[Rfam]
RNA sequence: CAGCGGGUGUGAGUCCCGCCCGGCAACUGUCGCUCCAGCCGGUAGCAAUCGGAGCGUCGAGGGAGGCAACGAACUCGACGAAGCCUCUGGUGUAGAGGGUCGCCACUGGCGACUCGGCGAGCAGGCAGGCCGUAACGUGA
Numbered sequence: 001c002a003g004c005g006g007g008u009g010u011g012a013g014u015c016c017c018g019c020c021c022g023g024c025a026a027c028u029g030u031c032g033c034u035c036c037a038g039c040c041g042g043u044a045g046c047a048a049u050c051g052g053a054g055c056g057u058c059g060a061g062g063g064a065g066g067c068a069a070c071g072a073a074c075u076c077g078a079c080g081a082a083g084c085c086u087c088u089g090g091u092g093u094a095g096a097g098g099g100u101c102g103c104c105a106c107u108g109g110c111g112a113c114u115c116g117g118c119g120a121g122c123a124g125g126c127a128g129g130c131c132g133u134a135a136c137g138u139g140a
Base pairs, nucleotide, nucleotide: 020042021041022040023039024038050089051088052087053086054085055080056079057078058077059076060075065070098114099113100112101111102110103109117133118132119131
RNA: Group II catalytic intron D1-D4-4